The family of this 133-nucleotide RNA sequence from Pipistrellus kuhlii is "Small nucleolar RNA SNORA51". Its family is annotated with nucleolus and RNA processing in the Gene Ontology. Lineage of the source: Eukaryota > Deuterostomia > Eutheria > Laurasiatheria > Pipistrellus. It scores 93 bits against the family's covariance model.
[Rfam]
RNA sequence: AGUCUUCCAGCGCUUCCUACAGGCUGUGUUCUUACAUUGACUGUCCAUAAAAAAGAAGGCGGAAUAAAUCCACCCCAUAUAUUCUUCAGCCCUGGUCCUUUGCCUGAUCUAUAUUGUGAUUGAGAAAACAUGG
Numbered sequence: 001a002g003u004c005u006u007c008c009a010g011c012g013c014u015u016c017c018u019a020c021a022g023g024c025u026g027u028g029u030u031c032u033u034a035c036a037u038u039g040a041c042u043g044u045c046c047a048u049a050a051a052a053a054a055g056a057a058g059g060c061g062g063a064a065u066a067a068a069u070c071c072a073c074c075c076c077a078u079a080u081a082u083u084c085u086u087c088a089g090c091c092c093u094g095g096u097c098c099u100u101u102g103c104c105u106g107a108u109c110u111a112u113a114u115u116g117u118g119a120u121u122g123a124g125a126a127a128a129c130a131u132g133g
Stems, first nucleotide, its partner, number of pairs: 002060006020043003026037004074124001076122002088110002092106001094104003

Rfam's curators write: ACA51 is a member of the H/ACA class of snoRNA that guide the sites of modification of uridines to pseudouridines. The family's RNA type in Rfam is H/ACA-box small nucleolar RNA.